[Rfam]
Nucleotides: 087
Stems, first nucleotide, its partner, number of pairs: 005036006012029003044083017
Number, partner (000 for none) and nucleotide at each position: 001000c002000c003000a004000c005036g006035u007034c008033c009032c010031g011000a012029c013028g014027c015000a016000c017000c018000a019000c020000c021000c022000c023000c024000c025000c026000g027014g028013c029012g030000c031010c032009g033008g034007g035006a036005c037000u038000u039000c040000c041000c042000c043000c044083g045082c046081c047080g048079g049078g050077u051076c052075c053074g054073g055072c056071g057070c058069c059068u060067g061000u062000c063000c064000c065000c066000c067060c068059g069058g070057g071056c072055g073054u074053c075052g076051g077050g078049c079048c080047c081046g082045g083044c084000u085000u086000u087000u